[Rfam]
A member of the RNA family "Small nucleolar RNA SNORA41" from Rhagologus leucostigma, 135 nucleotides long. NCBI's taxonomy places the organism under Eukaryota, Eumetazoa, Deuterostomia, Theropoda, Rhagologus. Rfam classes the family as an H/ACA-box small nucleolar RNA. The family's consensus secondary structure was predicted with PFOLD. Its family is annotated with nucleolus and RNA processing in the Gene Ontology.
Nucleotides: 135
Stems, first nucleotide, its partner, number of pairs: 003061004017047003021043005075124003079120001089114008
Number, partner (000 for none) and nucleotide at each position: 001000c002000u003061c004060c005059a006058c007000a008000g009000c010000u011000a012000c013000u014000g015000g016000u017047c018046u019045g020000g021043a022042a023041c024040u025039g026000u027000u028000c029000a030000g031000a032000u033000c034000u035000g036000a037000a038000g039025c040024a041023g042022u043021u044000g045019c046018a047017g048000u049000a050000u051000u052000c053000c054000c055000u056000c057000u058006g059005u060004g061003g062000a063000a064000a065000a066000u067000a068000a069000a070000c071000u072000g073000u074000u075124a076123c077122a078000c079120a080000g081000u082000g083000u084000u085000a086000a087000g088000c089114u090113c091112c092111u093110u094109c095108u096107c097000a098000g099000a100000u101000c102000u103000u104000c105000c106000u107096g108095a109094g110093g111092a112091g113090g114089a115000c116000u117000u118000c119000c120079u121000a122077u123076g124075u125000a126000a127000c128000a129000a130000a131000c132000a133000c134000u135000g
ACA41 is a member of the H/ACA class of snoRNA that guide the sites of modification of uridines to pseudouridines.